[Rfam]
RNA sequence: ACACAAGGUAGAGGCCAAGAACCCCCACCCUACGGAAGAAACGGGCACCAGAGAGGGCCUGGGGAGGAGCCAGUGGUGCGACCGGCUACCUUCUAU
Numbered sequence: 001a002c003a004c005a006a007g008g009u010a011g012a013g014g015c016c017a018a019g020a021a022c023c024c025c026c027a028c029c030c031u032a033c034g035g036a037a038g039a040a041a042c043g044g045g046c047a048c049c050a051g052a053g054a055g056g057g058c059c060u061g062g063g064g065a066g067g068a069g070c071c072a073g074u075g076g077u078g079c080g081a082c083c084g085g086c087u088a089c090c091u092u093c094u095a096u
Stems, first nucleotide, its partner, number of pairs: 001096001003094001005092007013071003023064005030057001043083002045079005
RNA: c-di-GMP-II-GAG riboswitch aptamer